The family of this 73-nucleotide RNA from Owenweeksia hongkongensis is "tRNA". The source organism's lineage runs through Bacteria, Bacteroidota, Flavobacteriia, Flavobacteriales and Owenweeksia hongkongensis. Transfer RNA (tRNA) molecules are approximately 80 nucleotides in length. A search with the family's covariance model found it, with a score of 65 bits. The family's consensus secondary structure is taken from published work.
[Rfam]
RNA sequence: CGGGAUGUAGCUCAGUUGGUAGAGUGCACGUCUGGGGGGCGUGAGGCCGCAGGUUCAAGUCCUGUCAUCCCGA
Numbered sequence: 001c002g003g004g005a006u007g008u009a010g011c012u013c014a015g016u017u018g019g020u021a022g023a024g025u026g027c028a029c030g031u032c033u034g035g036g037g038g039g040c041g042u043g044a045g046g047c048c049g050c051a052g053g054u055u056c057a058a059g060u061c062c063u064g065u066c067a068u069c070c071c072g073a
Stems, first nucleotide, its partner, number of pairs: 001072007010025004027043005049065005